A member of the RNA family "MIR7502 microRNA precursor family" from Gossypium klotzschianum, 145 nucleotides long. Lineage of the source: Eukaryota > Viridiplantae > Spermatophyta > Malvales > Gossypium. Rfam 15.1 lists 74,505 matches to the family in 24 species. The base pairs follow the family's consensus structure, which was predicted with RNAalifold.

RNA sequence: UGUUAAAAAAUCUAUUAAUUUGUAUUGUUAAAAACUAGCAUAGGUGACGGAAUAACCAGACAGUAACAUGUGGUAUGCCACGUGUACCUCAUGUUGACAUAUAAGGACCAUUUUUUAAGAAUAGAAGUAGAUAAAAUGUUUAACA
Numbered sequence: 001u002g003u004u005a006a007a008a009a010a011u012c013u014a015u016u017a018a019u020u021u022g023u024a025u026u027g028u029u030a031a032a033a034a035c036u037a038g039c040a041u042a043g044g045u046g047a048c049g050g051a052a053u054a055a056c057c058a059g060a061c062a063g064u065a066a067c068a069u070g071u072g073g074u075a076u077g078c079c080a081c082g083u084g085u086a087c088c089u090c091a092u093g094u095u096g097a098c099a100u101a102u103a104a105g106g107a108c109c110a111u112u113u114u115u116u117a118a119g120a121a122u123a124g125a126a127g128u129a130g131a132u133a134a135a136a137u138g139u140u141u142a143a144c145a
Stems, first nucleotide, its partner, number of pairs: 002144006009137001011135001013133004018128004023123004028118006